[Rfam]
Betaproteobacteria toxic small RNA: a 64-nucleotide RNA from Ideonella livida.
Lineage of the source: Bacteria > Pseudomonadati > Burkholderiales > Sphaerotilaceae > Ideonella.
The family's consensus secondary structure was predicted with WAR.
It scores 67 bits against the family's covariance model.
Overexpression in amino aid rich medium attenuates growth, suggesting role in repressing amino acid intake and metabolism.
On this family, see Kimelman et al., Genome Res 2012: "A vast collection of microbial genes that are toxic to bacteria".
Nucleotides: 064
Base pairs, nucleotide, nucleotide: 008028009027010026011025012024013023032057033056034055035054036053037052038051039050
Number, partner (000 for none) and nucleotide at each position: 001000u002000g003000u004000c005000u006000c007000c008028u009027c010026c011025a012024c013023c014000u015000c016000c017000u018000c019000c020000a021000u022000u023013g024012g025011u026010g027009g028008a029000u030000u031000c032057a033056g034055c035054c036053c037052g038051a039050a040000g041000c042000c043000u044000c045000a046000c047000g048000g049000c050039u051038u052037c053036g054035g055034g056033c057032u058000u059000u060000u061000u062000u063000u064000c